Shown here is a 92-nucleotide RNA from Hydrogenophaga borbori, a member of the family "SAH (S-adenosyl-L-homocysteine) riboswitch aptamer".
For this family Rfam cites "Riboswitches that sense S-adenosylhomocysteine and activate genes involved in coenzyme recycling" (Wang et al., Mol Cell, 2008).
The family's consensus secondary structure is taken from published work.
RNA sequence: CCAUCCGAGGAGCGUUGCAGCGCCCCACCCGCACCGAGCGGGCCGCGGGCGUGAGGCUCGGACCCUUCAACCGGCAACCACGCUCAUCCACU
Number, nucleotide and partner (000 for none) at each position: 001c000002c000003a000004u062005c061006c060007g059008a058009g000010g000011a000012g000013c000014g000015u000016u000017g000018c000019a000020g000021c051022g050023c049024c048025c047026c000027a000028c000029c000030c000031g000032c000033a000034c000035c000036g000037a000038g000039c000040g000041g000042g000043c000044c000045g000046c000047g025048g024049g023050c022051g021052u000053g000054a000055g000056g000057c000058u008059c007060g006061g005062a004063c000064c000065c000066u000067u000068c000069a000070a000071c000072c000073g000074g000075c000076a000077a000078c000079c000080a000081c000082g000083c000084u000085c000086a000087u000088c000089c000090a000091c000092u000